[Rfam]
The family of this 136-nucleotide RNA from Oribacterium parvum is "Clostridiales-1 RNA". The family's consensus secondary structure is taken from published work. Rfam classes the family as a small RNA.

RNA sequence: UAAAACAAGGAUUAAGACAAAAAAAAUCUGCUGCAAGCUAGCUUGUAAGCAGAUUUUUUUUGUCUUAAUCCGCAAACGCAUGAGCAACGAGCGAAGCGAGUUGCGAAUGUGUUUGUAGGACGGAGUCCAUGUUUUA
Numbered sequence: 001u002a003a004a005a006c007a008a009g010g011a012u013u014a015a016g017a018c019a020a021a022a023a024a025a026a027u028c029u030g031c032u033g034c035a036a037g038c039u040a041g042c043u044u045g046u047a048a049g050c051a052g053a054u055u056u057u058u059u060u061u062g063u064c065u066u067a068a069u070c071c072g073c074a075a076a077c078g079c080a081u082g083a084g085c086a087a088c089g090a091g092c093g094a095a096g097c098g099a100g101u102u103g104c105g106a107a108u109g110u111g112u113u114u115g116u117a118g119g120a121c122g123g124a125g126u127c128c129a130u131g132u133u134u135u136a
Base pairs, nucleotide, nucleotide: 001136002135003134004133005132006131007130010070011069012068013067017063018062019061020060021059022058023057024056025055026054027053028052029051030050031049032048033046034045035044036043037042074114075113076112077111078110079109080108081107084104085103086102087101091097092096118128119127120126121125